[Rfam]
About this RNA
Group II catalytic intron D1-D4-6: a 234-nucleotide sequence. The literature on the family includes a 2001 paper in Trends Genet by Bonen and Vogel, "The ins and outs of group II introns". About the family: Group II introns are found in rRNA, tRNA and mRNA of organelles in fungi, plants and protists, and also in mRNA in bacteria. Rfam's curators put it in the seed alignment.

RNA sequence: AGAUUCCAAAUCAGGCAAAGUUUAGCGAACAGCCUGUACUCAGUCUUGAUGCCGAAGCCGCGAGGUCAGGUAUAAGCGUAGACAGAGGAGUAUGCGAGCCGCAAUGCGAAAGCGUGAAGCGAUUGAGCCUCGUUAUAACUGAAAGCGGAAGCCGAUGUGUUCGUCCUCACAGCAGGCAGCAAUGUACACUCGUUAUCGCGAGAGUGUUACAGGUUCCGCCGGGGUCAUAGAGCG
Numbered sequence: 001a002g003a004u005u006c007c008a009a010a011u012c013a014g015g016c017a018a019a020g021u022u023u024a025g026c027g028a029a030c031a032g033c034c035u036g037u038a039c040u041c042a043g044u045c046u047u048g049a050u051g052c053c054g055a056a057g058c059c060g061c062g063a064g065g066u067c068a069g070g071u072a073u074a075a076g077c078g079u080a081g082a083c084a085g086a087g088g089a090g091u092a093u094g095c096g097a098g099c100c101g102c103a104a105u106g107c108g109a110a111a112g113c114g115u116g117a118a119g120c121g122a123u124u125g126a127g128c129c130u131c132g133u134u135a136u137a138a139c140u141g142a143a144a145g146c147g148g149a150a151g152c153c154g155a156u157g158u159g160u161u162c163g164u165c166c167u168c169a170c171a172g173c174a175g176g177c178a179g180c181a182a183u184g185u186a187c188a189c190u191c192g193u194u195a196u197c198g199c200g201a202g203a204g205u206g207u208u209a210c211a212g213g214u215u216c217c218g219c220c221g222g223g224g225u226c227a228u229a230g231a232g233c234g
Stems, first nucleotide, its partner, number of pairs: 012036005020030003023201001025199002039087003043083004047078002049073005054067002058065002125226001127225006145219005151177003156171004183211004187206005